[Rfam]
RNA sequence: UGAUAAUAUCAUAUUUAAGAUAGUCCUAUUUAGCCAUCUUUAGCUCCCGGUUUUAUUUAGGACUAUCCAAAUCUUUAAAAUGCUU
Numbered sequence: 001u002g003a004u005a006a007u008a009u010c011a012u013a014u015u016u017a018a019g020a021u022a023g024u025c026c027u028a029u030u031u032a033g034c035c036a037u038c039u040u041u042a043g044c045u046c047c048c049g050g051u052u053u054u055a056u057u058u059a060g061g062a063c064u065a066u067c068c069a070a071a072u073c074u075u076u077a078a079a080a081u082g083c084u085u
Stems, first nucleotide, its partner, number of pairs: 019067009032052004
Dot-bracket structure: ..................(((((((((....((((.............))))......)))))))))..................
About this RNA: The record is an 85-nucleotide RNA sequence, which matches "rhtB sRNA" in Rfam. Rfam classes the family as a small RNA. For this family Rfam cites "Identification of candidate structured RNAs in the marine organism 'Candidatus Pelagibacter ubique'" (Meyer et al., BMC Genomics, 2009).